[Rfam]
RNA sequence: UAAUGUGUUGCAAACACGCCUCACCAAGACUAAACAGCGUGUCUAAACAACAGUCUUUCAUACCUCAGAUGGAGGGUGUCUGAGGAAUAUUAAUACCG
Numbered sequence: 001u002a003a004u005g006u007g008u009u010g011c012a013a014a015c016a017c018g019c020c021u022c023a024c025c026a027a028g029a030c031u032a033a034a035c036a037g038c039g040u041g042u043c044u045a046a047a048c049a050a051c052a053g054u055c056u057u058u059c060a061u062a063c064c065u066c067a068g069a070u071g072g073a074g075g076g077u078g079u080c081u082g083a084g085g086a087a088u089a090u091u092a093a094u095a096c097c098g
Stems, first nucleotide, its partner, number of pairs: 016040004026057005063085007
The record is a 98-nucleotide RNA sequence, which matches "PhotoRC-II RNA" in Rfam. The sequence is in the family's curated seed alignment.